[Rfam]
Background
A member of the RNA family "Bacterial large signal recognition particle RNA" from Melghiribacillus thermohalophilus, 267 nucleotides long. Taxonomically the source falls in Melghiribacillus (Bacteria, Bacillati, Bacillota, Bacilli). It is annotated as a non-coding RNA gene.
RNA sequence: CCGUGCUAGGCGGGGAGGUAGCGGUGCCCUGAACUCGCAAUCCGCUAUAGCGGGGCUGAAUUCCUGCUCUGAGGUGUAGUCAUCUCAUGGUCUGCCGUAAGCAACCGGUGCUGACACCCGGGUCCUGCGCAACGGGAACCCGUGAACCCUGUCAGGUCCGGAAGGAAGCAGCAGUAAGCGGUCAUUCUCGUGUGCCGCAGGGCAGCCUGGGUCGAGCCGUGAGCUUAUGUAACGCUUGAGGUGACUCCAUCGAAGGCAGGUGCACGG
Number, nucleotide and partner (000 for none) at each position: 001c267002c266003g265004u264005g263006c262007u000008a000009g057010g056011c055012g030013g029014g028015g027016a000017g025018g000019u023020a000021g000022c000023g019024g000025u017026g000027c015028c014029c013030u012031g000032a000033a000034c054035u053036c052037g051038c050039a000040a000041u000042c000043c000044g000045c000046u000047a000048u000049a000050g038051c037052g036053g035054g034055g011056c010057u009058g000059a000060a000061u000062u000063c260064c259065u258066g257067c256068u000069c255070u254071g000072a000073g251074g250075u249076g248077u000078a000079g000080u244081c243082a242083u241084c240085u239086c238087a237088u000089g235090g000091u000092c000093u231094g230095c000096c000097g228098u227099a226100a225101g224102c223103a000104a000105c221106c000107g218108g217109u216110g000111c000112u000113g000114a000115c000116a212117c211118c210119c209120g208121g207122g206123u205124c201125c200126u199127g198128c197129g196130c192131a191132a000133c190134g189135g188136g187137a186138a000139c000140c181141c180142g179143u178144g000145a000146a000147c000148c000149c174150u173151g172152u171153c000154a000155g000156g000157u166158c165159c164160g000161g000162a000163a000164g159165g158166a157167a000168g000169c000170a000171g152172c151173a150174g149175u000176a000177a000178g143179c142180g141181g140182u000183c000184a000185u000186u137187c136188u135189c134190g133191u131192g130193u000194g000195c000196c129197g128198c127199a126200g125201g124202g000203c000204a000205g123206c122207c121208u120209g119210g118211g117212u116213c000214g000215a000216g109217c108218c107219g000220u000221g105222a000223g102224c101225u100226u099227a098228u097229g000230u094231a093232a000233c000234g000235c089236u000237u087238g086239a085240g084241g083242u082243g081244a080245c000246u000247c000248c076249a075250u074251c073252g000253a000254a070255g069256g067257c066258a065259g064260g063261u000262g006263c005264a004265c003266g002267g001